This 167-nucleotide RNA from Metabacillus arenae belongs to the Rfam family "glmS glucosamine-6-phosphate activated ribozyme aptamer". By type it is a riboswitch. The family's consensus secondary structure is taken from published work.
[Rfam]
RNA sequence: AAUCAUUAGAUAGCGCCUGAACUAAGCUGACGGACGAUAGCUUAGUUGACGAGGAGGAGGUUAAUCGAUUCUUCGGCGGAUGCCUCCCGGUUGCACGAUUACAACCGAACGCGACUCUUUAAACCAUAGGGGCAACCUUGUGUACAAAGAGAGGAGCUUAAUCGAUC
Numbered sequence: 001a002a003u004c005a006u007u008a009g010a011u012a013g014c015g016c017c018u019g020a021a022c023u024a025a026g027c028u029g030a031c032g033g034a035c036g037a038u039a040g041c042u043u044a045g046u047u048g049a050c051g052a053g054g055a056g057g058a059g060g061u062u063a064a065u066c067g068a069u070u071c072u073u074c075g076g077c078g079g080a081u082g083c084c085u086c087c088c089g090g091u092u093g094c095a096c097g098a099u100u101a102c103a104a105c106c107g108a109a110c111g112c113g114a115c116u117c118u119u120u121a122a123a124c125c126a127u128a129g130g131g132g133c134a135a136c137c138u139u140g141u142g143u144a145c146a147a148a149g150a151g152a153g154g155a156g157c158u159u160a161a162u163c164g165a166u167c
Stems, first nucleotide, its partner, number of pairs: 020047008029038001056087005065076004088107006111157002115153003125142007

The source organism's lineage runs through Bacteria, Bacilli, Caryophanales, Bacillaceae and Metabacillus.